[Rfam]
RNA sequence: AAUAAGUGUAACAUUCCGUUUAACGUGUUUUACUCUGAUUAAUUUAUGAAAUUUUUAUGUUGGGAAAACGGGGUGUUACAUUUGU
Numbered sequence: 001a002a003u004a005a006g007u008g009u010a011a012c013a014u015u016c017c018g019u020u021u022a023a024c025g026u027g028u029u030u031u032a033c034u035c036u037g038a039u040u041a042a043u044u045u046a047u048g049a050a051a052u053u054u055u056u057a058u059g060u061u062g063g064g065a066a067a068a069c070g071g072g073g074u075g076u077u078a079c080a081u082u083u084g085u
Base pairs, nucleotide, nucleotide: 002085003084004083005082006081007080008079009078010077011076012075013074014073015072016071017070018069019068020067